[Rfam]
RNA: raiA RNA
Organism: Caloramator fervidus
Nucleotides: 204
Base pairs, nucleotide, nucleotide: 001204002203003202005201006200007199008198009197010196013195014194015193016189017188018187019186020185029175030174031173032042034092035091036090037089038088039087040086051085052084059077061076062075063074064073065072083182104168105167106166107165108164109119110118111117123161124160125159126158132153133152138147139146140145
Number, partner (000 for none) and nucleotide at each position: 001204g002203c003202a004000u005201g006200g007199u008198u009197a010196g011000g012000u013195c014194u015193g016189u017188g018187g019186u020185u021000g022000a023000a024000a025000g026000u027000c028000g029175a030174u031173g032042c033000u034092a035091g036090c037089c038088g039087c040086a041000g042032g043000c044000g045000a046000a047000a048000c049000g050000a051085c052084c053000c054000a055000c056000g057000u058000a059077a060000g061076u062075c063074a064073g065072a066000c067000a068000a069000a070000a071000g072065u073064c074063u075062g076061a077059u078000g079000a080000g081000c082000a083182u084052g085051g086040u087039g088038c089037g090036g091035c092034u093000u094000a095000g096000a097000a098000g099000u100000a101000a102000g103000u104168c105167c106166u107165g108164c109119c110118g111117g112000u113000a114000a115000a116000a117111c118110c119109g120000a121000g122000a123161g124160g125159a126158g127000g128000a129000u130000u131000a132153g133152u134000g135000a136000g137000a138147g139146g140145u141000a142000u143000a144000c145140a146139c147138c148000u149000u150000a151000a152133g153132c154000a155000a156000a157000a158126c159125u160124c161123c162000c163000a164108g165107c166106a167105g168104g169000c170000g171000a172000g173031u174030g175029u176000g177000g178000g179000g180000g181000c182083a183000a184000a185020g186019a187018c188017c189016a190000g191000g192000u193015c194014a195013g196010c197009u198008a199007a200006c201005c202003u203002g204001c